This 192-nucleotide RNA from Genlisea aurea belongs to the Rfam family "small nucleolar RNA snoR143". NCBI's taxonomy places the organism under Eukaryota, Streptophytina, Embryophyta, Pentapetalae, Genlisea. It scores 81 bits against the family's covariance model. Its family is annotated with nucleolus and RNA processing in the Gene Ontology.

RNA sequence: CUGCACCGCCUCCUGUGUAAAAGGCUUCUUCCAUACGUAUACUCGCUGGAGGAGCCUUCGAGGUGAGGGUGCAGAUAUCGAUGGCUGAUCAACAAACGAAUCAGCGGGCGGCCAGACAACCGUCGGGAUGGAUCCACAGAUGAGCGCCGCCUCUUCUCUACGGCGCUUGUCUACUAAUUCCAUCUCAUAUUC
Number, nucleotide and partner (000 for none) at each position: 001c000002u073003g072004c071005a070006c069007c000008g000009c000010c000011u000012c000013c000014u065015g064016u063017g000018u061019a000020a000021a058022a057023g056024g055025c054026u053027u052028c051029u050030u049031c048032c000033a000034u000035a000036c000037g000038u000039a000040u000041a000042c000043u000044c000045g000046c000047u000048g031049g030050a029051g028052g027053a026054g025055c024056c023057u022058u021059c000060g000061a018062g000063g016064u015065g014066a000067g000068g000069g006070u005071g004072c003073a002074g000075a000076u000077a000078u000079c000080g000081a000082u000083g000084g000085c000086u000087g000088a000089u000090c000091a000092a000093c000094a000095a000096a000097c000098g000099a000100a000101u000102c000103a000104g000105c000106g000107g000108g000109c000110g000111g000112c000113c000114a000115g000116a000117c000118a000119a000120c000121c000122g000123u000124c000125g186126g185127g184128a183129u182130g181131g180132a179133u000134c000135c000136a000137c000138a000139g000140a000141u000142g000143a168144g167145c165146g164147c163148c162149g000150c000151c000152u000153c000154u000155u000156c000157u000158c000159u000160a000161c000162g148163g147164c146165g145166c000167u144168u143169g000170u000171c000172u000173a000174c000175u000176a000177a000178u000179u132180c131181c130182a129183u128184c127185u126186c125187a000188u000189a000190u000191u000192c000